[Rfam]
RNA sequence: GCGGACGGCCGGGCGACCGCGCGCAAGCGAGGAAAGUCCGGACUCCACGAAGCGACGGUGCCGGGUAACGCCCGGCCGGGGCAACCCGAGGGAAAGCGCCACAGAGAACAGACGGCCUUCGCGGGUCGCGCAAGCGGCUCACGCGGGUCACGGUGAAACGGUGCGGUAAGAGCGCACCGCGGGACGGGCAACCGGACCGGCACGGCAAGCCCCACCGGGAGCAAUGUCGAAUAGGGGGUCCAUAUGGGCAGGCUUCGGCCCGGACCCCGGGUAGACAGCUUGAUCCCGUCGGUAACGGCGGGACCAGAUGAAUGGUCGUCCCCCUUUUCGGAGGGGACAGAAUCCGGCUUACAGGCCGUCCGCACCU
Numbered sequence: 001g002c003g004g005a006c007g008g009c010c011g012g013g014c015g016a017c018c019g020c021g022c023g024c025a026a027g028c029g030a031g032g033a034a035a036g037u038c039c040g041g042a043c044u045c046c047a048c049g050a051a052g053c054g055a056c057g058g059u060g061c062c063g064g065g066u067a068a069c070g071c072c073c074g075g076c077c078g079g080g081g082c083a084a085c086c087c088g089a090g091g092g093a094a095a096g097c098g099c100c101a102c103a104g105a106g107a108a109c110a111g112a113c114g115g116c117c118u119u120c121g122c123g124g125g126u127c128g129c130g131c132a133a134g135c136g137g138c139u140c141a142c143g144c145g146g147g148u149c150a151c152g153g154u155g156a157a158a159c160g161g162u163g164c165g166g167u168a169a170g171a172g173c174g175c176a177c178c179g180c181g182g183g184a185c186g187g188g189c190a191a192c193c194g195g196a197c198c199g200g201c202a203c204g205g206c207a208a209g210c211c212c213c214a215c216c217g218g219g220a221g222c223a224a225u226g227u228c229g230a231a232u233a234g235g236g237g238g239u240c241c242a243u244a245u246g247g248g249c250a251g252g253c254u255u256c257g258g259c260c261c262g263g264a265c266c267c268c269g270g271g272u273a274g275a276c277a278g279c280u281u282g283a284u285c286c287c288g289u290c291g292g293u294a295a296c297g298g299c300g301g302g303a304c305c306a307g308a309u310g311a312a313u314g315g316u317c318g319u320c321c322c323c324c325u326u327u328u329c330g331g332a333g334g335g336g337a338c339a340g341a342a343u344c345c346g347g348c349u350u351a352c353a354g355g356c357c358g359u360c361c362g363c364a365c366c367u
Base pairs, nucleotide, nucleotide: 001363002362003361004360005359006358007357008356009355010354011352012320013319014318015317016316017315018314020029021028022027034350035349036348038347039346040345041344042343043221044220045219046218051255052254056217057216058215059214060213061075062074063073064072065071076090077088078087079086080085091212092211096210097209098206099205100204113152114151115148116147117146118145120143121142123140124139125138126137127136128135129134160178161177162176163175164174165173179201180199181198182197185194186193187192225277226276227275228274235268236267237266238265239264240263246261247260248259249258284303285302286301287300288299289298290297291296
The family of this 367-nucleotide RNA sequence from Silicimonas algicola is "Bacterial RNase P class A". The family is grouped with related families in Rfam's "RNaseP clan". Lineage of the source: Bacteria > Alphaproteobacteria > Rhodobacterales > Paracoccaceae > Silicimonas.